[Rfam]
RNA sequence: GAUGCAAUGAUGAGGCAAAGCACCCAACGGUGUGGUAGGGUAGUGGGCGGAGCUUUUAAAGCUCCACCGUGAACCUUCAUUUUUAACGACUUCUCCUUCCACUGAGCAUC
Numbered sequence: 001g002a003u004g005c006a007a008u009g010a011u012g013a014g015g016c017a018a019a020g021c022a023c024c025c026a027a028c029g030g031u032g033u034g035g036u037a038g039g040g041u042a043g044u045g046g047g048c049g050g051a052g053c054u055u056u057u058a059a060a061g062c063u064c065c066a067c068c069g070u071g072a073a074c075c076u077u078c079a080u081u082u083u084u085a086a087c088g089a090c091u092u093c094u095c096c097u098u099c100c101a102c103u104g105a106g107c108a109u110c
Base pairs, nucleotide, nucleotide: 001110002109003108004107005106
Annotation: The family of this 110-nucleotide RNA sequence from Acer yangbiense is "Small nucleolar RNA Z152/R70/R12/". For this family Rfam cites "Identification of 66 box C/D snoRNAs in Arabidopsis thaliana: extensive gene duplications generated multiple isoforms predicting new ribosomal RNA 2'-O-methylation sites" (Barneche et al., J Mol Biol, 2001). Pairs were carried over by alignment from the consensus structure, which was predicted with PFOLD. Lineage of the source: Eukaryota > Gunneridae > Sapindales > Sapindaceae > Acer.